[Rfam]
RNA sequence: GAAUAAUACUUUUUUGUUAUCCCCAAUCAAUAACACAAUUACAUGCGGAAACACUAUCUCAUGUGUCAUUGUGUUAUUGGUUGGGAAUAACAAAAAGUGUUAUACUC
Numbered sequence: 001g002a003a004u005a006a007u008a009c010u011u012u013u014u015u016g017u018u019a020u021c022c023c024c025a026a027u028c029a030a031u032a033a034c035a036c037a038a039u040u041a042c043a044u045g046c047g048g049a050a051a052c053a054c055u056a057u058c059u060c061a062u063g064u065g066u067c068a069u070u071g072u073g074u075u076a077u078u079g080g081u082u083g084g085g086a087a088u089a090a091c092a093a094a095a096a097g098u099g100u101u102a103u104a105c106u107c
Base pairs, nucleotide, nucleotide: 002106004104005103012095013094014093015092016091017090018089019088020087022085023084024083025082026081027080028079029078030077031076032075033074034073035072036071037070038069039068041066042065043064044063045062047060048059050057

This 107-nucleotide sequence from Prunus yedoensis belongs to the Rfam family "MIR6274 microRNA precursor family". Lineage of the source: Eukaryota > Mesangiospermae > Rosaceae > Amygdaleae > Prunus yedoensis. The family has 2 seed sequences and 342 matches in Rfam 15.1.